The family of this 65-nucleotide RNA sequence from Paramylibacter kogurei is "Glycine riboswitch aptamer". The organism belongs to Paramylibacter, within Bacteria.
[Rfam]
RNA sequence: CUCUGGAGAGUGGUGCGAAAAAGUACCCGCCGAAGGGAUAGCGAUCUCAGGCACCGAUGACAGAG
Numbered sequence: 001c002u003c004u005g006g007a008g009a010g011u012g013g014u015g016c017g018a019a020a021a022a023g024u025a026c027c028c029g030c031c032g033a034a035g036g037g038a039u040a041g042c043g044a045u046c047u048c049a050g051g052c053a054c055c056g057a058u059g060a061c062a063g064a065g
Stems, first nucleotide, its partner, number of pairs: 001065005012027004029052003032048002036046002